[Rfam]
RNA: ribosomal frameshift site
Organism: Cyanoderma ruficeps
RNA sequence: GGGGGGACACAGAGCCCCCCAAACCUU
Numbered sequence: 001g002g003g004g005g006g007a008c009a010c011a012g013a014g015c016c017c018c019c020c021a022a023a024c025c026u027u
Stems, first nucleotide, its partner, number of pairs: 001020006012027003